The family of this 101-nucleotide sequence from Peptacetobacter hiranonis is "Purine riboswitch aptamer". It scores 75 bits against the family's covariance model. NCBI's taxonomy places the organism under Bacteria, Bacillati, Peptostreptococcaceae, Peptacetobacter, Peptacetobacter hiranonis.
[Rfam]
RNA sequence: AAUAAAAAUUAAUAAUGUAAUCAUAUAAUUUUGACAAUAUGGGUCAUAAGUUUCUACCAGCCACCGUAAAAGGGCUGACUAUGAUACUGAAUUAAGUACUC
Dot-bracket structure: ...................((((((...((.((((.......)))).))........(((((..........)))))..))))))................